[Rfam]
About this RNA:
The family of this 75-nucleotide RNA is "DUF3800-X RNA". The family's RNA type in Rfam is small RNA. Rfam's curators put it in the seed alignment. The family's consensus secondary structure is taken from published work.

RNA sequence: UAGUGUUGUAAGUCCCUUCCGAAAAGGAUGAUGCCACCAAUUGGUGGACGUGACGAAGUACGAAGGGGUUCACUA
Dot-bracket structure: (((((.......(((((((..............(((((....)))))..............)))))))..)))))
Numbered sequence: 001u002a003g004u005g006u007u008g009u010a011a012g013u014c015c016c017u018u019c020c021g022a023a024a025a026g027g028a029u030g031a032u033g034c035c036a037c038c039a040a041u042u043g044g045u046g047g048a049c050g051u052g053a054c055g056a057a058g059u060a061c062g063a064a065g066g067g068g069u070u071c072a073c074u075a
Stems, first nucleotide, its partner, number of pairs: 001075005013068007034047005